Rfam assigns this 102-nucleotide RNA from Virgibacillus salarius to the family "Purine riboswitch aptamer". Gene Ontology term of the family: purine nucleobase biosynthetic process.
RNA sequence: ACAUUCAAAUAUUCCUAUUUUCAUAUAAUAGCAGGAAUAAGGCCUGCAAGUUUCUACCGGUUUACCGUAAAUAAACCGACUAUGAAAAACUACUGGAAUGAU
Numbered sequence: 001a002c003a004u005u006c007a008a009a010u011a012u013u014c015c016u017a018u019u020u021u022c023a024u025a026u027a028a029u030a031g032c033a034g035g036a037a038u039a040a041g042g043c044c045u046g047c048a049a050g051u052u053u054c055u056a057c058c059g060g061u062u063u064a065c066c067g068u069a070a071a072u073a074a075a076c077c078g079a080c081u082a083u084g085a086a087a088a089a090c091u092a093c094u095g096g097a098a099u100g101a102u
Stems, first nucleotide, its partner, number of pairs: 018088008029049001031047005058078007